Rfam assigns this 128-nucleotide RNA sequence from Thermoanaerobacterium thermosaccharolyticum to the family "c-di-AMP riboswitch aptamer (ydaO/yuaA leader)". The source organism's lineage runs through Bacteria, Clostridia, Thermoanaerobacteraceae, Thermoanaerobacterium and Thermoanaerobacterium thermosaccharolyticum.
Nucleotides: 128
Base pairs, nucleotide, nucleotide: 011113012112013111014110019031020030021029022028034107035106036105037104038103043050051093052092053091059069060068061067062066072087073086074085075084
Number, partner (000 for none) and nucleotide at each position: 001000a002000a003000g004000u005000a006000a007000a008000a009000u010000a011113u012112g013111c014110c015000g016000a017000a018000u019031c020030c021029c022028c023000g024000a025000a026000a027000a028022g029021g030020g031019g032000u033000a034107c035106g036105g037104g038103g039000g040000a041000u042000c043050u044000u045000u046000u047000u048000u049000u050043g051093g052092g053091g054000u055000g056000a057000a058000u059069c060068c061067a062066u063000u064000u065000u066062g067061u068060g069059g070000u071000a072087g073086g074085g075084c076000a077000g078000c079000c080000c081000u082000u083000u084075g085074c086073c087072c088000g089000a090000a091053c092052c093051c094000g095000u096000c097000a098000a099000c100000u101000a102000a103038c104037c105036u106035c107034g108000g109000a110014g111013g112012c113011a114000a115000a116000a117000g118000g119000g120000g121000g122000a123000u124000a125000u126000u127000u128000a
On this family, see Barrick et al., Proc Natl Acad Sci U S A 2004: "New RNA motifs suggest an expanded scope for riboswitches in bacterial genetic control".